[Rfam]
RNA sequence: GUUUAAAACAGGACGAAACCUUGUAUAAGUUUAGAAAUAAGGUCUAAACGUUUCUACCAAGCUGCCGCAAAUAGCUUGACUACAAGGAUGAUUGAGAUUUUA
Numbered sequence: 001g002u003u004u005a006a007a008a009c010a011g012g013a014c015g016a017a018a019c020c021u022u023g024u025a026u027a028a029g030u031u032u033a034g035a036a037a038u039a040a041g042g043u044c045u046a047a048a049c050g051u052u053u054c055u056a057c058c059a060a061g062c063u064g065c066c067g068c069a070a071a072u073a074g075c076u077u078g079a080c081u082a083c084a085a086g087g088a089u090g091a092u093u094g095a096g097a098u099u100u101u102a
Stems, first nucleotide, its partner, number of pairs: 019087007029049007058078007
RNA: Purine riboswitch aptamer